The record is an 85-nucleotide RNA sequence from Paenibacillus sp. Leaf72, which matches "c-di-GMP-I-GGC riboswitch aptamer" in Rfam. NCBI's taxonomy places the organism under Bacteria, Bacillati, Caryophanales, Paenibacillaceae, Paenibacillus. Pairs were carried over by alignment from the consensus structure, which is taken from published work.
[Rfam]
RNA sequence: CACGAUAACGGCAAACCUGUCGAAAGGCAGGGACGCAAAGCUAAAGGGCCUUCUCUAUUAUUAGAUGGCAGCCUAGCCACCGAAG
Number, nucleotide and partner (000 for none) at each position: 001c085002a000003c082004g081005a000006u000007a000008a000009c000010g000011g036012c035013a000014a000015a000016c031017c030018u029019g028020u027021c026022g000023a000024a000025a000026g021027g020028c019029a018030g017031g016032g000033a000034c071035g012036c011037a000038a000039a000040g077041c076042u075043a000044a000045a074046g073047g072048g069049c068050c067051u000052u000053c000054u000055c000056u000057a000058u000059u000060a000061u000062u000063a000064g000065a000066u000067g050068g049069c048070a000071g034072c047073c046074u045075a042076g041077c040078c000079a000080c000081c004082g003083a000084a000085g001